Shown here is a 142-nucleotide RNA from Rhodococcoides trifolii, a member of the family "mraW RNA". NCBI's taxonomy places the organism under Bacteria, Bacillati, Actinomycetes, Nocardiaceae, Rhodococcoides.
RNA sequence: CGUGGUGGUUACUGCGUGGCCUCUGCCCGAACCGGACCCUGACGCACUUCCCCAGCGCCAGGUGCCGGGAGAGACCCUGACGUACUUCCCCAACGCCAGGUUCUCGCCUCGGACAGAGACCUCGCAGUACCCACCGGACCGC
Numbered sequence: 001c002g003u004g005g006u007g008g009u010u011a012c013u014g015c016g017u018g019g020c021c022u023c024u025g026c027c028c029g030a031a032c033c034g035g036a037c038c039c040u041g042a043c044g045c046a047c048u049u050c051c052c053c054a055g056c057g058c059c060a061g062g063u064g065c066c067g068g069g070a071g072a073g074a075c076c077c078u079g080a081c082g083u084a085c086u087u088c089c090c091c092a093a094c095g096c097c098a099g100g101u102u103c104u105c106g107c108c109u110c111g112g113a114c115a116g117a118g119a120c121c122u123c124g125c126a127g128u129a130c131c132c133a134c135c136g137g138a139c140c141g142c
Base pairs, nucleotide, nucleotide: 010129011128012127013126014125015124016123018121019120021118022117023116024115025114027112028111029110030109033106034105035103036102038100039099040098041097043095044094

Rfam 15.1 lists 851 matches to the family in 821 species.